[Rfam]
Shown here is a 72-nucleotide RNA from Rousettus aegyptiacus, a member of the family "mir-551 microRNA precursor family".
Its family is annotated with miRNA-mediated post-transcriptional gene silencing and RISC complex in the Gene Ontology.
A search with the family's covariance model found it, with a score of 62 bits.

RNA sequence: UGACCCCAGAAACUCAGAGCGGGUGAGGCCUGUCUGAGCGUUUCUAGGCGACCCGCUCGGUUUCUAAGGUUG
Numbered sequence: 001u002g003a004c005c006c007c008a009g010a011a012a013c014u015c016a017g018a019g020c021g022g023g024u025g026a027g028g029c030c031u032g033u034c035u036g037a038g039c040g041u042u043u044c045u046a047g048g049c050g051a052c053c054c055g056c057u058c059g060g061u062u063u064c065u066a067a068g069g070u071u072g
Base pairs, nucleotide, nucleotide: 002071003070004069005068009064010063011062012061013060014059016057017056021054022053023052024051028049029048030047031046
The family has 29 seed sequences and 1,097 matches in Rfam 15.1.